[Rfam]
RNA sequence: UUAUACAGUCAGAGCUAUAAAUCUCUCCCUGUGAGAUACGGAGGAAGAAAAAUUUGGUGAGAAUAUCGUUUCAGACGUCCAUUAAUUGAUUGACGAUCUGAUUGUUGCUCUUCAACAU
Number, nucleotide and partner (000 for none) at each position: 001u000002u000003a000004u000005a000006c031007a030008g029009u000010c000011a026012g025013a024014g023015c000016u000017a000018u000019a000020a000021a000022u000023c014024u013025c012026u011027c000028c000029c008030u007031g006032u000033g000034a000035g000036a000037u000038a000039c000040g000041g000042a000043g000044g000045a000046a000047g000048a000049a000050a000051a000052a000053u000054u000055u000056g000057g113058u000059g110060a109061g108062a000063a000064u000065a102066u101067c100068g099069u000070u000071u000072c000073a000074g097075a000076c095077g094078u093079c092080c000081a000082u089083u088084a000085a000086u000087u000088g083089a082090u000091u000092g079093a078094c077095g076096a000097u074098c000099u068100g067101a066102u065103u000104g000105u000106u000107g000108c061109u060110c059111u000112u000113c057114a000115a000116c000117a000118u000
Rfam assigns this 118-nucleotide RNA from Papaver somniferum to the family "Small nucleolar RNA snoR111". Rfam 15.1 lists 533 matches to the family in 223 species. The family's RNA type in Rfam is H/ACA-box small nucleolar RNA. The family's consensus secondary structure was predicted with WAR. A reference for the family is Marker et al. (2002), "Experimental RNomics: identification of 140 candidates for small non-messenger RNAs in the plant Arabidopsis thaliana", Curr Biol.